[Rfam]
RNA sequence: CAACCGGAGAGAACCGCGUGAAUCACUAUACUACUUGAUUCACACGGUUCUCGCAAA
Numbered sequence: 001c002a003a004c005c006g007g008a009g010a011g012a013a014c015c016g017c018g019u020g021a022a023u024c025a026c027u028a029u030a031c032u033a034c035u036u037g038a039u040u041c042a043c044a045c046g047g048u049u050c051u052c053g054c055a056a057a
Base pairs, nucleotide, nucleotide: 007054009052010051011050012049013048014047015046016045018043019042020041021040022039023038024037025036

A member of the RNA family "Plastid-ccsA-ndhD-1 3UTR RNA" from Helianthus annuus, 57 nucleotides long. From the family's description: Plastid-ccsA-ndhD-1 is a non-coding RNA (ncRNA) recognised in plastids. It was found in the three prime untranslated region (3UTR) of ccsA and ndhD genes, its 3UTR location suggests a role in transcript maturation. The match comes from Rfam's covariance-model search (61 bits).